[Rfam]
RNA: FuFi-1 RNA
RNA sequence: UCCACCGACUAAUGGGCAACUAAUCUUACCAACAUCAACGUCGCUGAACUAAAACUGCGUAAGCGGUGGAAUACUUAAAGAAACAUUGGCGCUAUACAAUGUGGUGAAAACCUGCAAAGUAUAUAAGGUCAAAAAAUUUAGGCAAAAACUGUUAGUGAUAGCGCACUAGCAGUUUUUU
Number, nucleotide and partner (000 for none) at each position: 001u070002c069003c068004a067005c066006c065007g064008a000009c000010u000011a000012a000013u000014g000015g000016g000017c000018a000019a000020c000021u000022a000023a000024u000025c000026u000027u000028a000029c000030c000031a000032a000033c000034a000035u000036c000037a000038a000039c000040g000041u000042c059043g058044c057045u000046g055047a000048a000049c142050u141051a000052a139053a138054a000055c046056u000057g044058c043059g042060u000061a000062a000063g000064c007065g006066g005067u004068g003069g002070a001071a122072u121073a120074c119075u118076u117077a000078a000079a000080g000081a000082a000083a102084c101085a100086u099087u098088g097089g000090c163091g162092c161093u160094a159095u158096a000097c088098a087099a086100u085101g084102u083103g112104g111105u110106g000107a000108a000109a000110a105111c104112c103113u000114g000115c000116a000117a076118a075119g074120u073121a072122u071123a000124u000125a000126a000127g000128g000129u000130c000131a000132a000133a000134a000135a000136a000137u000138u053139u052140a000141g050142g049143c000144a000145a000146a175147a174148a173149c172150u171151g170152u169153u168154a167155g166156u165157g164158a095159u094160a093161g092162c091163g090164c157165a156166c155167u154168a153169g152170c151171a150172g149173u148174u147175u146176u000177u000178u000